[Rfam]
Glycine riboswitch aptamer: a 106-nucleotide RNA sequence from Paenibacillus stellifer. NCBI's taxonomy places the organism under Bacteria, Bacillota, Bacilli, Paenibacillaceae, Paenibacillus.
RNA sequence: AUGAUGGUGUAGGGAGAGACCGUUCCGAAUAGGACGGCGCCGAAGGAGUAAGCCCCGGGGAGGCCCCGGCGGUGAAUCUCUCAGGCAAAAGGACCUCUGCCGGACG
Numbered sequence: 001a002u003g004a005u006g007g008u009g010u011a012g013g014g015a016g017a018g019a020c021c022g023u024u025c026c027g028a029a030u031a032g033g034a035c036g037g038c039g040c041c042g043a044a045g046g047a048g049u050a051a052g053c054c055c056c057g058g059g060g061a062g063g064c065c066c067c068g069g070c071g072g073u074g075a076a077u078c079u080c081u082c083a084g085g086c087a088a089a090a091g092g093a094c095c096u097c098u099g100c101c102g103g104a105c106g
Base pairs, nucleotide, nucleotide: 006101007100008099009098011096012095013094020037021036022035023034039086040085041084042082043081046080047079048078052073053072

Source information
The pairing is the family consensus, mapped onto this sequence.